[Rfam]
RNA sequence: CUUGUCUGAUCGCUGAGUCUUCUUCGUUAGAAGAAGAGCGGGGGAACCAUUUCAUGUUUGGGGUGAAUCCUUGCGGGCACCGGCUCGAACGGCAGGAAUUCUUUGAAACGGCUAAGCGUUCGGCCAAAGCAGGGUAGGGCUAUCCCUGAGCCCGAAUCCGUCAGCUAACCUCGUAAGCGUCAUUUGGGGGAGAC
Numbered sequence: 001c002u003u004g005u006c007u008g009a010u011c012g013c014u015g016a017g018u019c020u021u022c023u024u025c026g027u028u029a030g031a032a033g034a035a036g037a038g039c040g041g042g043g044g045a046a047c048c049a050u051u052u053c054a055u056g057u058u059u060g061g062g063g064u065g066a067a068u069c070c071u072u073g074c075g076g077g078c079a080c081c082g083g084c085u086c087g088a089a090c091g092g093c094a095g096g097a098a099u100u101c102u103u104u105g106a107a108a109c110g111g112c113u114a115a116g117c118g119u120u121c122g123g124c125c126a127a128a129g130c131a132g133g134g135u136a137g138g139g140c141u142a143u144c145c146c147u148g149a150g151c152c153c154g155a156a157u158c159c160g161u162c163a164g165c166u167a168a169c170c171u172c173g174u175a176a177g178c179g180u181c182a183u184u185u186g187g188g189g190g191a192g193a194c
Stems, first nucleotide, its partner, number of pairs: 011179004018037008038174006048060002061159003069134006137153004